[Rfam]
Source information:
The family of this 35-nucleotide RNA from Jaculus jaculus is "Iron response element I". Rfam classes the family as a cis-regulatory element. NCBI's taxonomy places the organism under Eukaryota, Craniata, Mammalia, Eutheria, Jaculus. Pairs were carried over by alignment from the consensus structure, which is taken from published work. The literature on the family includes a 1987 paper in Science by Hentze et al., "Identification of the iron-responsive element for the translational regulation of human ferritin mRNA".

RNA sequence: CUGUGUCUUGUUUCAACAGUGUUUGAAUGGAAUAC
Numbered sequence: 001c002u003g004u005g006u007c008u009u010g011u012u013u014c015a016a017c018a019g020u021g022u023u024u025g026a027a028u029g030g031a032a033u034a035c
Stems, first nucleotide, its partner, number of pairs: 002034003006031003010028001012027005017021001